[Rfam]
RNA: L17-Actino-Proteobacteria ribosomal protein leader
RNA sequence: CCGGCGGGUAAUCGCCCGUCCGGGAACUGACACCGGUACCUGAUACGGCCGGUGCAG
Numbered sequence: 001c002c003g004g005c006g007g008g009u010a011a012u013c014g015c016c017c018g019u020c021c022g023g024g025a026a027c028u029g030a031c032a033c034c035g036g037u038a039c040c041u042g043a044u045a046c047g048g049c050c051g052g053u054g055c056a057g
Base pairs, nucleotide, nucleotide: 001023002022003021004020005018006017007016008015027057028056029055031054032053033052034051035050036049037048
Dot-bracket structure: ((((((((......)))).))))...(((.(((((((..........))))))))))